[Rfam]
RNA sequence: ACGAGAUGCCCUUCGUACUUGGUGGAAUCGGUCCCUGAAGAAGUCCGAUUUUCCCAGUACGUAAGGGCAUUCUCACUUCACGACGCGCUCACCCGACCGACCUCAUCGGUGGAUCGAG
Numbered sequence: 001a002c003g004a005g006a007u008g009c010c011c012u013u014c015g016u017a018c019u020u021g022g023u024g025g026a027a028u029c030g031g032u033c034c035c036u037g038a039a040g041a042a043g044u045c046c047g048a049u050u051u052u053c054c055c056a057g058u059a060c061g062u063a064a065g066g067g068c069a070u071u072c073u074c075a076c077u078u079c080a081c082g083a084c085g086c087g088c089u090c091a092c093c094c095g096a097c098c099g100a101c102c103u104c105a106u107c108g109g110u111g112g113a114u115c116g117a118g
Stems, first nucleotide, its partner, number of pairs: 003072002006070008014061003018057001020056003025051004030046001033043001098116003103112003
A member of the RNA family "Actinobacteria sRNA Ms_IGR-7" from Nocardioides sp. Root190, 118 nucleotides long. Lineage of the source: Bacteria > Bacillati > Actinomycetota > Nocardioidaceae > Nocardioides. Rfam 15.1 lists 463 matches to the family in 194 species. The base pairs follow the family's consensus structure. It is annotated as a small RNA.